Shown here is a 74-nucleotide sequence from Bombyx mori, a member of the family "mir-2816 microRNA precursor family".

RNA sequence: CUCAACUCUACUCGAGUGAGGUAGAGUCGAGGUACUGCAUUACCACGACUUCAUCAGUUCGAGGAAAAUUUGCC
Numbered sequence: 001c002u003c004a005a006c007u008c009u010a011c012u013c014g015a016g017u018g019a020g021g022u023a024g025a026g027u028c029g030a031g032g033u034a035c036u037g038c039a040u041u042a043c044c045a046c047g048a049c050u051u052c053a054u055c056a057g058u059u060c061g062a063g064g065a066a067a068a069u070u071u072g073c074c
Stems, first nucleotide, its partner, number of pairs: 003072003009065001011063006017056003021052001026049004031044001
A search with the family's covariance model found it, with a score of 65 bits.
Rfam links the family to the GO terms RISC complex and miRNA-mediated post-transcriptional gene silencing.
The family's consensus secondary structure was predicted with RNAalifold.